[Rfam]
RNA sequence: AGUCCAUCCCGAGCGGCCGAGAGAUCUGGCUCGACGACGCCGCAGCAACCACCCGGAUCGGGCAGGUGCUACCGCCAGGAACGAUGGAGU
Dot-bracket structure: (.((((((....(((((...(((..[[[[)))......)))))((((.((.((((...))))..))))))...(]]]]...))))))).)
Numbered sequence: 001a002g003u004c005c006a007u008c009c010c011g012a013g014c015g016g017c018c019g020a021g022a023g024a025u026c027u028g029g030c031u032c033g034a035c036g037a038c039g040c041c042g043c044a045g046c047a048a049c050c051a052c053c054c055g056g057a058u059c060g061g062g063c064a065g066g067u068g069c070u071a072c073c074g075c076c077a078g079g080a081a082c083g084a085u086g087g088a089g090u
Stems, first nucleotide, its partner, number of pairs: 001090001003088006013043005021032003026078004044070004049066002052062004074082001

The record is a 90-nucleotide sequence from Actinopolyspora mzabensis, which matches "SAM riboswitch aptamer (S box leader)" in Rfam. The source organism's lineage runs through Bacteria, Actinomycetota, Actinopolysporales, Actinopolysporaceae and Actinopolyspora.